[Rfam]
RNA sequence: AACAGAAAAAGGCAAACCACCUGAAAAGAUGGGACGCAAAGCUAACGGGUCUAAGGCCAAUAUAAAGAAAAAGGGAGCUAUGACGGCUGAGCCGCCUGA
Numbered sequence: 001a002a003c004a005g006a007a008a009a010a011g012g013c014a015a016a017c018c019a020c021c022u023g024a025a026a027a028g029a030u031g032g033g034a035c036g037c038a039a040a041g042c043u044a045a046c047g048g049g050u051c052u053a054a055g056g057c058c059a060a061u062a063u064a065a066a067g068a069a070a071a072a073g074g075g076a077g078c079u080a081u082g083a084c085g086g087c088u089g090a091g092c093c094g095c096c097u098g099a
Base pairs, nucleotide, nucleotide: 012037013036017032018031019030021028022027041092042091043090046089047088048087049084050083051082056078057077
RNA: c-di-GMP-I riboswitch aptamer